[Rfam]
The family of this 111-nucleotide RNA sequence from Atlantibacter hermannii is "Alpha operon ribosome binding site". The family's consensus secondary structure is taken from published work. Gene Ontology term of the family: ribosome binding.
RNA sequence: GUCUAUGCGUUCCCAUUUGAGUAUCCUGAAAACGGGCUUUUCAGCAUGGGGCGCAUAAUUUAAUAGUAGGAGUGCAUAGUGGCCCGUAUAGCAGGCAUUAACAUUCCUGAU
Numbered sequence: 001g002u003c004u005a006u007g008c009g010u011u012c013c014c015a016u017u018u019g020a021g022u023a024u025c026c027u028g029a030a031a032a033c034g035g036g037c038u039u040u041u042c043a044g045c046a047u048g049g050g051g052c053g054c055a056u057a058a059u060u061u062a063a064u065a066g067u068a069g070g071a072g073u074g075c076a077u078a079g080u081g082g083c084c085c086g087u088a089u090a091g092c093a094g095g096c097a098u099u100a101a102c103a104u105u106c107c108u109g110a111u
Stems, first nucleotide, its partner, number of pairs: 004057007012050003025095003033086004041110003
Notes: On this family, see Schlax et al., J Biol Chem 2001: "Translational repression of the Escherichia coli alpha operon mRNA: importance of an mRNA conformational switch and a ternary entrapment complex". NCBI's taxonomy places the organism under Bacteria, Pseudomonadota, Enterobacteriaceae, Atlantibacter, Atlantibacter hermannii.